This 172-nucleotide RNA from Burkholderia vietnamiensis belongs to the Rfam family "Group II catalytic intron D1-D4-3". The source organism's lineage runs through Bacteria, Betaproteobacteria, Burkholderiaceae, Burkholderia cepacia complex and Burkholderia vietnamiensis. About the family: Group II introns are found in rRNA, tRNA and mRNA of organelles in fungi, plants and protists, and also in mRNA in bacteria. Pairs were carried over by alignment from the consensus structure.
RNA sequence: AUGAGGGCGACCGAGUGUGGGGAGGAAGCGUGGAGCGUAAAUCGCGAGCCGAUGGACAAGAACUGCAUAGAAGGCACUGCCGAGCAGGGCGAGCGGGCAAGAGACCGCGAAGCUCUCGUGAUCAAGACGAGGCGGCGUAAAUGCAGCGGUUGUGCGAUGAAGGAGUGCGUUC
Dot-bracket structure: ((..((....))..))...........(.(((...(....(((((((((((...........((((((.....((..((((..(..((((..((((........))))...))))............)..))))..))..))))))))))).))))))....)....))).)